[Rfam]
The record is a 205-nucleotide RNA sequence from Mycena sanguinolenta, which matches "U2 spliceosomal RNA" in Rfam. A search with the family's covariance model found it, with a score of 94 bits. Its family is annotated with mRNA branch site recognition, U2 snRNP and pre-mRNA branch point binding in the Gene Ontology. Rfam 15.1 lists 71,512 matches to the family in 2,642 species. It is annotated as a spliceosomal small nuclear RNA.

RNA sequence: CCCCCACUCUAGCCGUCUGGCUUAGAUCAAGUGUAGUAUCUGUUCUUAAUAGUCUAACCACUAUUACGGGAGCACGUCUCCCUUCAUGGUUUUACUAUUUUUUGGCUUUCCUCUUGGGUCCUGGAUUGCGCUUUGCUUGCAAAGCCAGUUCUGGAUUCGGUGAUGACCUUGCUGCUGCACUACCGGCUUGUGUUGUCCGGGGAUU
Numbered sequence: 001c002c003c004c005c006a007c008u009c010u011a012g013c014c015g016u017c018u019g020g021c022u023u024a025g026a027u028c029a030a031g032u033g034u035a036g037u038a039u040c041u042g043u044u045c046u047u048a049a050u051a052g053u054c055u056a057a058c059c060a061c062u063a064u065u066a067c068g069g070g071a072g073c074a075c076g077u078c079u080c081c082c083u084u085c086a087u088g089g090u091u092u093u094a095c096u097a098u099u100u101u102u103u104g105g106c107u108u109u110c111c112u113c114u115u116g117g118g119u120c121c122u123g124g125a126u127u128g129c130g131c132u133u134u135g136c137u138u139g140c141a142a143a144g145c146c147a148g149u150u151c152u153g154g155a156u157u158c159g160g161u162g163a164u165g166a167c168c169u170u171g172c173u174g175c176u177g178c179a180c181u182a183c184c185g186g187c188u189u190g191u192g193u194u195g196u197c198c199g200g201g202g203a204u205u
Stems, first nucleotide, its partner, number of pairs: 008026003011022004047066006068082005116158006123151001132143004162197005168190001171187003
About the family: U2 is a small nuclear RNA (snRNA) component of the spliceosome (involved in pre-mRNA splicing).